[Rfam]
RNA: Plastid-psbA-1 3UTR RNA
Organism: Rhodomyrtus tomentosa
RNA sequence: UGUCGAAGCUCCAUCUACAAAUGGAUAAGACUUUGUUCUUAGUAUAAGUGUAGUUUUUGAUUGCAAAAUAAAGGAGCAAUAACCAACACUCUUGAUAGAAUAAGAAAUUGGUUAUUGUUCCUUUAUU
Numbered sequence: 001u002g003u004c005g006a007a008g009c010u011c012c013a014u015c016u017a018c019a020a021a022u023g024g025a026u027a028a029g030a031c032u033u034u035g036u037u038c039u040u041a042g043u044a045u046a047a048g049u050g051u052a053g054u055u056u057u058u059g060a061u062u063g064c065a066a067a068a069u070a071a072a073g074g075a076g077c078a079a080u081a082a083c084c085a086a087c088a089c090u091c092u093u094g095a096u097a098g099a100a101u102a103a104g105a106a107a108u109u110g111g112u113u114a115u116u117g118u119u120c121c122u123u124u125a126u127u
Stems, first nucleotide, its partner, number of pairs: 010025005070124013084110003090105004